The record is a 113-nucleotide RNA from Medicago truncatula, which matches "MIR2593 microRNA precursor family" in Rfam.

RNA sequence: AUAUAAGCAAAAUUCAUUUUUUAAGUUCAUUCAUUUAAUGAUGUAUGUGGUCCAUAUUAUAAACUAUAUACAUCAUUAAAUGAAUGAACCUAAAAAGUGAAUUUUGCUUAUAU
Numbered sequence: 001a002u003a004u005a006a007g008c009a010a011a012a013u014u015c016a017u018u019u020u021u022u023a024a025g026u027u028c029a030u031u032c033a034u035u036u037a038a039u040g041a042u043g044u045a046u047g048u049g050g051u052c053c054a055u056a057u058u059a060u061a062a063a064c065u066a067u068a069u070a071c072a073u074c075a076u077u078a079a080a081u082g083a084a085u086g087a088a089c090c091u092a093a094a095a096a097g098u099g100a101a102u103u104u105u106g107c108u109u110a111u112a113u
Stems, first nucleotide, its partner, number of pairs: 002112011014100010026088018048066004